[Rfam]
Nucleotides: 102
Stems, first nucleotide, its partner, number of pairs: 021085005029049007058078007
Number, partner (000 for none) and nucleotide at each position: 001000u002000a003000u004000u005000c006000a007000u008000a009000a010000a011000a012000u013000a014000u015000u016000u017000a018000u019000u020000a021085c022084u023083g024082u025081a026000u027000a028000u029049g030048u031047c032046c033045g034044g035043a036000a037000a038000u039000a040000a041000g042000g043035u044034c045033u046032g047031g048030a049029c050000g051000u052000u053000u054000c055000u056000a057000c058078c059077a060076a061075g062074c063073u064072g065000c066000c067000g068000u069000a070000a071000a072064u073063g074062g075061c076060u077059u078058g079000u080000c081025u082024a083023c084022a085021g086000g087000u088000u089000a090000a091000g092000c093000u094000u095000u096000u097000c098000c099000c100000c101000g102000u

Shown here is a 102-nucleotide RNA from Bacillus infantis, a member of the family "Purine riboswitch aptamer". A search with the family's covariance model found it, with a score of 78 bits.